This 104-nucleotide RNA sequence from Frigoriflavimonas asaccharolytica belongs to the Rfam family "Flavo-1 RNA". Lineage of the source: Bacteria > Pseudomonadati > Bacteroidota > Flavobacteriia > Frigoriflavimonas. The base pairs follow the family's consensus structure, which is taken from published work. A search with the family's covariance model found it, with a score of 64 bits.
[Rfam]
RNA sequence: UAAUAGCCCCGAUAGAAGCGGCAUCCUUUUUUGCCUGGAGAUUGCUUCGUACCUCGCGAUGACCUUCAAUAGCAAAAAAAAUAUAGCGGAUAGCGGGAAAUAGC
Numbered sequence: 001u002a003a004u005a006g007c008c009c010c011g012a013u014a015g016a017a018g019c020g021g022c023a024u025c026c027u028u029u030u031u032u033g034c035c036u037g038g039a040g041a042u043u044g045c046u047u048c049g050u051a052c053c054u055c056g057c058g059a060u061g062a063c064c065u066u067c068a069a070u071a072g073c074a075a076a077a078a079a080a081a082u083a084u085a086g087c088g089g090a091u092a093g094c095g096g097g098a099a100a101u102a103g104c
Base pairs, nucleotide, nucleotide: 009096010095011094013092014091018087019086023082024081029077030076031075032074033073034072